[Rfam]
RNA sequence: ACAAGUUUGAGGCCAUAGCAGAAGUGCUUAUGGCGUGGCCUGUCAGAUUCCAGCAAAUUUGUGAAUUCUACU
Numbered sequence: 001a002c003a004a005g006u007u008u009g010a011g012g013c014c015a016u017a018g019c020a021g022a023a024g025u026g027c028u029u030a031u032g033g034c035g036u037g038g039c040c041u042g043u044c045a046g047a048u049u050c051c052a053g054c055a056a057a058u059u060u061g062u063g064a065a066u067u068c069u070a071c072u
Base pairs, nucleotide, nucleotide: 011040012039013038014037017072018071020069021068022067023066024036025035026034044061045060046059047058048057049056
Description:
Rfam assigns this 72-nucleotide sequence from Alligator mississippiensis to the family "Mammalian CPEB3 ribozyme". The base pairs follow the family's consensus structure, which is taken from published work. The source organism's lineage runs through Eukaryota, Deuterostomia, Amniota, Sauria and Alligator. From the family's description: The mammalian CPEB3 ribozyme is a self cleaving RNA located in the second intron of the CPEB3 gene which belongs to a family of genes regulating messenger RNA polyadenylation.